[Rfam]
RNA sequence: CAACCCAUGCAGUGAUGUAUGGCUGAGCGUCCAGAAGUCAGCAGAGGCCAUAGUACCGCUAAGGGGAUGUCCCGUUUAGAGGGAGUACGAACGGAGCGGGAAGGGC
Dot-bracket structure: ((..(((((((....))))))).))............((....)).(((......(((((..................................)))))....)))
RNA: Group II catalytic intron D1-D4-1